[Rfam]
RNA sequence: CGUAUGGUAUUCGGCACAUUUUUAGGUGACCGGAUGGCGAUACGGCCCAAUGAGGU
Numbered sequence: 001c002g003u004a005u006g007g008u009a010u011u012c013g014g015c016a017c018a019u020u021u022u023u024a025g026g027u028g029a030c031c032g033g034a035u036g037g038c039g040a041u042a043c044g045g046c047c048c049a050a051u052g053a054g055g056u
Stems, first nucleotide, its partner, number of pairs: 001044005007038002011033004015028003